Description
This 67-nucleotide sequence from Bombyx mori belongs to the Rfam family "mir-2774 microRNA precursor family". The base pairs follow the family's consensus structure, which was predicted with RNAalifold. NCBI's taxonomy places the organism under Eukaryota, Panarthropoda, Glossata, Neolepidoptera, Bombyx. Rfam links the family to the GO terms RISC complex and miRNA-mediated post-transcriptional gene silencing.

RNA sequence: ACAGCAUUCGGACUGACGAUCUACCGAGCAAUUGCACCCGCUCGGUGGAAAAUCUUCCCUACGCCGU
Dot-bracket structure: ...((....(((..(....((((((((((..........))))))))))...)..)))....))...
Numbered sequence: 001a002c003a004g005c006a007u008u009c010g011g012a013c014u015g016a017c018g019a020u021c022u023a024c025c026g027a028g029c030a031a032u033u034g035c036a037c038c039c040g041c042u043c044g045g046u047g048g049a050a051a052a053u054c055u056u057c058c059c060u061a062c063g064c065c066g067u
Stems, first nucleotide, its partner, number of pairs: 004064002010058003015053001020049010